[Rfam]
RNA sequence: AGUGGAGGACUAAUCGGACGGAGUCUGGAGAGUGAGACUCGGAUGAGAGUAGCCUCCUAAAAGAAACGAGAUGGGGAGAGCAGUCCUUCCUACAGCAAAGCAAAGGGCUGACUGUGCCAUCCGACACUU
Dot-bracket structure: ..((((((........(.(.((((((........)))))).).)........))))).)........(.(........(((((((((...(.(......).).))))))).))......).).......
RNA: Small Cajal body specific RNA 4
Organism: Pluvianellus socialis